[Rfam]
RNA sequence: CAAUCAUCAUCAUCAUCCUGAUUAAUCUUUCGGGAUGAUUUGUUAUACCUGGAAGAUUUUUGAAUUCUUCCAGUUUAAAAAAAGCCUUGGAAGAAUUCCAAGGCUUUUUUUUU
Numbered sequence: 001c002a003a004u005c006a007u008c009a010u011c012a013u014c015a016u017c018c019u020g021a022u023u024a025a026u027c028u029u030u031c032g033g034g035a036u037g038a039u040u041u042g043u044u045a046u047a048c049c050u051g052g053a054a055g056a057u058u059u060u061u062g063a064a065u066u067c068u069u070c071c072a073g074u075u076u077a078a079a080a081a082a083a084g085c086c087u088u089g090g091a092a093g094a095a096u097u098c099c100a101a102g103g104c105u106u107u108u109u110u111u112u113u
Stems, first nucleotide, its partner, number of pairs: 009046002012039003017034005048073001050072007078110015
Histidine operon leader: a 113-nucleotide sequence from Paraphotobacterium marinum.
The source organism's lineage runs through Bacteria, Pseudomonadati, Gammaproteobacteria, Vibrionales and Paraphotobacterium.
The base pairs follow the family's consensus structure, which is taken from published work.
At least 6 amino acid operons are known to be regulated by attenuation. In each a leader sequence of 150-200 bp is found upstream of the first gene in the operon. This leader sequence can assume two different secondary structures known as the terminator and the anti-terminator structure. In each case the leader also codes for very short peptide sequence that is rich in the end product amino acid of the operon.
For this family Rfam cites "Attenuation in amino acid biosynthetic operons" (Kolter and Yanofsky, Annu Rev Genet, 1982).